[Rfam]
RNA sequence: GGCUGCGCGCACAGCUCAAUGGGCGUACUAUUCUUUCGCCUUUUACUAAAGAGUACAGUGGGCUGAUGACACGUAAGCAGCUUACGUGAAAUUUUCACAGGCCUACCAGACUAGUCUG
Numbered sequence: 001g002g003c004u005g006c007g008c009g010c011a012c013a014g015c016u017c018a019a020u021g022g023g024c025g026u027a028c029u030a031u032u033c034u035u036u037c038g039c040c041u042u043u044u045a046c047u048a049a050a051g052a053g054u055a056c057a058g059u060g061g062g063c064u065g066a067u068g069a070c071a072c073g074u075a076a077g078c079a080g081c082u083u084a085c086g087u088g089a090a091a092u093u094u095u096c097a098c099a100g101g102c103c104u105a106c107c108a109g110a111c112u113a114g115u116c117u118g
Stems, first nucleotide, its partner, number of pairs: 003080004010068002012065007029055008098118001100117002103114003
Record summary
The family of this 118-nucleotide RNA sequence from Chara braunii is "U5 spliceosomal RNA". The family's consensus secondary structure is taken from published work. Rfam 15.1 lists 28,527 matches to the family in 2,489 species. It scores 57 bits against the family's covariance model.